[Rfam]
RNA sequence: GGCCUCCCUCUGUGGGGCGAUCAAUUGCAGAGCCCCUAUUGAUCACCCUGCAGAGGGAGGCC
Numbered sequence: 001g002g003c004c005u006c007c008c009u010c011u012g013u014g015g016g017g018c019g020a021u022c023a024a025u026u027g028c029a030g031a032g033c034c035c036c037u038a039u040u041g042a043u044c045a046c047c048c049u050g051c052a053g054a055g056g057g058a059g060g061c062c
Stems, first nucleotide, its partner, number of pairs: 001062017019044007027036001
RNA: mir-9242 microRNA precursor family